RNA sequence: UUGAUUGAUUUAAAGAAUUUAACUUGUAGACUUGAAGAAUUUGGAGACCUCAACUUGCAGACUUGAAGAAUUUGAAGACUUCAACU
Numbered sequence: 001u002u003g004a005u006u007g008a009u010u011u012a013a014a015g016a017a018u019u020u021a022a023c024u025u026g027u028a029g030a031c032u033u034g035a036a037g038a039a040u041u042u043g044g045a046g047a048c049c050u051c052a053a054c055u056u057g058c059a060g061a062c063u064u065g066a067a068g069a070a071u072u073u074g075a076a077g078a079c080u081u082c083a084a085c086u
Stems, first nucleotide, its partner, number of pairs: 001084004009076006018067004025059004032053004037048001
The record is an 86-nucleotide sequence from Solanum tuberosum, which matches "MIR8024 microRNA precursor family" in Rfam. Lineage of the source: Eukaryota > Streptophyta > Solanaceae > Solaneae > Solanum. Gene Ontology terms of the family: RISC complex and miRNA-mediated post-transcriptional gene silencing. Pairs were carried over by alignment from the consensus structure, which was predicted with RNAalifold. Rfam 15.1 lists 661 matches to the family in 8 species.